[Rfam]
RNA sequence: AUCAUCAGGUGAUGAAGAAUGGAAAAAUCUUAGGACACCAUUGGACACAACCUUUUGAAGUUGUGGAUGAGAAUACCAUUUUUUCUGAUGAUGAG
Dot-bracket structure: .((((((....................................(...)........................................)))))).
RNA: Small nucleolar RNA snoR31/Z110/Z27
Organism: Actinidia chinensis